[Rfam]
RNA sequence: UAAGGGUGAUAGCUUCUCUUCCUGGUUCUUCCUGGAGUUGGGAAAAGCUGGCUUGAGGGGGUUAAAAAAAAAAGGG
Numbered sequence: 001u002a003a004g005g006g007u008g009a010u011a012g013c014u015u016c017u018c019u020u021c022c023u024g025g026u027u028c029u030u031c032c033u034g035g036a037g038u039u040g041g042g043a044a045a046a047g048c049u050g051g052c053u054u055g056a057g058g059g060g061g062u063u064a065a066a067a068a069a070a071a072a073a074g075g076g
Stems, first nucleotide, its partner, number of pairs: 014059005022051004029044006

Rfam assigns this 76-nucleotide RNA from Pongo abelii to the family "mir-320 microRNA precursor family". On this family, see Berezikov et al., Genome Res 2006: "Many novel mammalian microRNA candidates identified by extensive cloning and RAKE analysis". The base pairs follow the family's consensus structure, which was predicted with RNAalifold. It scores 63 bits against the family's covariance model.